The record is a 75-nucleotide RNA from Homo sapiens, which matches "mir-492 microRNA precursor family" in Rfam. It is one of the family's seed sequences. NCBI's taxonomy places the organism under Eukaryota, Craniata, Tetrapoda, Mammalia, Homo. Rfam 15.1 lists 149 matches to the family in 48 species.
RNA sequence: ACCAUCGAGGACCUGCGGGACAAGAUUCUUGGUGCCACCAUUGAGAACGCCAGGAUUGUCCUGCAGAUCAACAAU
Numbered sequence: 001a002c003c004a005u006c007g008a009g010g011a012c013c014u015g016c017g018g019g020a021c022a023a024g025a026u027u028c029u030u031g032g033u034g035c036c037a038c039c040a041u042u043g044a045g046a047a048c049g050c051c052a053g054g055a056u057u058g059u060c061c062u063g064c065a066g067a068u069c070a071a072c073a074a075u
Stems, first nucleotide, its partner, number of pairs: 010069002013066011027055008